[Rfam]
RNA sequence: UAAAAAGGAAGUUCGACUAAAGGCAUCGCGUCCUGUGAUAACGUCGAACUGACUUGCCUACUAUAAG
Numbered sequence: 001u002a003a004a005a006a007g008g009a010a011g012u013u014c015g016a017c018u019a020a021a022g023g024c025a026u027c028g029c030g031u032c033c034u035g036u037g038a039u040a041a042c043g044u045c046g047a048a049c050u051g052a053c054u055u056g057c058c059u060a061c062u063a064u065a066a067g
Stems, first nucleotide, its partner, number of pairs: 011049007025039005053067004

Source information:
This 67-nucleotide RNA sequence from Pueribacillus theae belongs to the Rfam family "Bacillaceae-1 RNA". Rfam classes the family as a small RNA. The base pairs follow the family's consensus structure, which is taken from published work.